RNA sequence: GCGUAGGUCCACUAGGGUUCCGUCCACCGUCAAACGUGGGGUCUGGUCCGAGAGUGGUCCGGCCUGAUCGCAGGCUCCACGGAGGGAUAAAAGCCCGGGAGAA
Numbered sequence: 001g002c003g004u005a006g007g008u009c010c011a012c013u014a015g016g017g018u019u020c021c022g023u024c025c026a027c028c029g030u031c032a033a034a035c036g037u038g039g040g041g042u043c044u045g046g047u048c049c050g051a052g053a054g055u056g057g058u059c060c061g062g063c064c065u066g067a068u069c070g071c072a073g074g075c076u077c078c079a080c081g082g083a084g085g086g087a088u089a090a091a092a093g094c095c096c097g098g099g100a101g102a103a
Base pairs, nucleotide, nucleotide: 007059009057010056011055012054015049016048020046021045022043023040024039025038026037027036029035061076062075063074064073065072066071078098080101084096085095086094
The record is a 103-nucleotide RNA sequence from Hydrogenophaga sp. A37, which matches "Guanidine-I riboswitch aptamer" in Rfam. The organism belongs to Hydrogenophaga, within Bacteria. Rfam 15.1 lists 1,509 matches to the family in 1,281 species. Pairs were carried over by alignment from the consensus structure.